[Rfam]
RNA: tRNA
RNA sequence: GCCGCUGUAGCUAACUUGUUAGAGCGUGGGUCUAAUAAGCCCAAGGUCGUAGAAGCGAUCCCUGCCAGCGGCA
Number, nucleotide and partner (000 for none) at each position: 001g072002c071003c070004g069005c068006u067007g066008u000009a000010g025011c024012u023013a000014a000015c000016u000017u000018g000019u000020u000021a000022g000023a012024g011025c010026g000027u043028g042029g041030g040031u039032c000033u000034a000035a000036u000037a000038a000039g031040c030041c029042c028043a027044a000045g000046g000047u000048c000049g065050u064051a063052g062053a000054a000055g000056c000057g000058a000059u000060c000061c000062c052063u051064g050065c049066c007067a006068g005069c004070g003071g002072c001073a000